RNA sequence: GGGGGUGGAUAGGUGCUGGUGUGCCUUACGGUCUUCAAAACCGAUAUGAGGAGCUGAUACCUUCUCGGGUGGGUUCAAUUCCCACGCACUCCC
Numbered sequence: 001g002g003g004g005g006u007g008g009a010u011a012g013g014u015g016c017u018g019g020u021g022u023g024c025c026u027u028a029c030g031g032u033c034u035u036c037a038a039a040a041c042c043g044a045u046a047u048g049a050g051g052a053g054c055u056g057a058u059a060c061c062u063u064c065u066c067g068g069g070u071g072g073g074u075u076c077a078a079u080u081c082c083c084a085c086g087c088a089c090u091c092c093c
Stems, first nucleotide, its partner, number of pairs: 001093007008085001011026006029043004047067005070084004